[Rfam]
RNA sequence: GUGCAUCCAGUAGGACUUGAACUUAUAAUUCGUUAAUUAUAAAUUGGACGAUUUAACCAUUCAACCAUGGAUGC
Numbered sequence: 001g002u003g004c005a006u007c008c009a010g011u012a013g014g015a016c017u018u019g020a021a022c023u024u025a026u027a028a029u030u031c032g033u034u035a036a037u038u039a040u041a042a043a044u045u046g047g048a049c050g051a052u053u054u055a056a057c058c059a060u061u062c063a064a065c066c067a068u069g070g071a072u073g074c
Stems, first nucleotide, its partner, number of pairs: 003074006010026005039068002044064005050058001